The family of this 414-nucleotide sequence from Phaeobacter gallaeciensis is "Bacterial RNase P class A". The family's RNA type in Rfam is ribozyme. Lineage of the source: Bacteria > Pseudomonadati > Pseudomonadota > Alphaproteobacteria > Phaeobacter. Rfam describes the family as follows. Ribonuclease P (RNase P) is a ubiquitous endoribonuclease, found in archaea, bacteria and eukarya as well as chloroplasts and mitochondria. Its best characterised activity is the generation of mature 5'-ends of tRNAs by cleaving the 5'-leader elements of precursor-tRNAs. Cellular RNase Ps are ribonucleoproteins. RNA from bacterial RNase Ps retains its catalytic activity in the absence of the protein subunit, i.e. it is a ribozyme.
RNA sequence: GCAGAAGGCUGGACGGCCGCGCUGGGGGCUCGCCCUCCGCGAGGAAAGUCCGGACUCCCUAAAGCAACGGUGCCGGGUAACGCCCGGGCAGGGCAACCUGACGGAUAGCGCCACAGAAAUGAAACCGCCGUGCCCCCGGCAACGGAUCAGGGCGCGGUAAGGGUGAAACGGUGGGGUAAGAGCCCACCGCGCCCCUGGCAACAGGGGCGGCACGGCAAGCCCCACCGGGAGCAACGCCAAAUAGGGCCCCCGCGCGGGUAGGUCCCGGCAACGGGAUACCGCCGCUAGGCAUGCUUUAGCCAAGAGGGGCCGGGUUGGCAGCUAGAGGUACGCAGUAAUGCGUAUCGCAGAUGAAUGGCCGUCCAUGAGGCGCAAGUCUCGGGACAGAAUCCGGCUUACAGGCCUUCUGCGCAA
Numbered sequence: 001g002c003a004g005a006a007g008g009c010u011g012g013a014c015g016g017c018c019g020c021g022c023u024g025g026g027g028g029c030u031c032g033c034c035c036u037c038c039g040c041g042a043g044g045a046a047a048g049u050c051c052g053g054a055c056u057c058c059c060u061a062a063a064g065c066a067a068c069g070g071u072g073c074c075g076g077g078u079a080a081c082g083c084c085c086g087g088g089c090a091g092g093g094c095a096a097c098c099u100g101a102c103g104g105a106u107a108g109c110g111c112c113a114c115a116g117a118a119a120u121g122a123a124a125c126c127g128c129c130g131u132g133c134c135c136c137c138g139g140c141a142a143c144g145g146a147u148c149a150g151g152g153c154g155c156g157g158u159a160a161g162g163g164u165g166a167a168a169c170g171g172u173g174g175g176g177u178a179a180g181a182g183c184c185c186a187c188c189g190c191g192c193c194c195c196u197g198g199c200a201a202c203a204g205g206g207g208c209g210g211c212a213c214g215g216c217a218a219g220c221c222c223c224a225c226c227g228g229g230a231g232c233a234a235c236g237c238c239a240a241a242u243a244g245g246g247c248c249c250c251c252g253c254g255c256g257g258g259u260a261g262g263u264c265c266c267g268g269c270a271a272c273g274g275g276a277u278a279c280c281g282c283c284g285c286u287a288g289g290c291a292u293g294c295u296u297u298a299g300c301c302a303a304g305a306g307g308g309g310c311c312g313g314g315u316u317g318g319c320a321g322c323u324a325g326a327g328g329u330a331c332g333c334a335g336u337a338a339u340g341c342g343u344a345u346c347g348c349a350g351a352u353g354a355a356u357g358g359c360c361g362u363c364c365a366u367g368a369g370g371c372g373c374a375a376g377u378c379u380c381g382g383g384a385c386a387g388a389a390u391c392c393g394g395c396u397u398a399c400a401g402g403c404c405u406u407c408u409g410c411g412c413a414a
Base pairs, nucleotide, nucleotide: 001410002409003408004407005406006405007404008403009402010401011399012363013362014361015360016359017358018357020041021040022039024037025036026035027034028033046397047396048395050394051393052392053391054390055231056230057229058228066296068227069226070225071224072223073087074086075085076084077083088102089100090099091098092097103222104221108220109219110216111215112214125162126161127158128157129156130155131154132153133152134151135150170188171187172186173185174184175183189211190209191208192207193206194205195204196203197202236319237318238317245311246310247309248308249307250306290304292302293301327346328345329344330343331342332341333340334339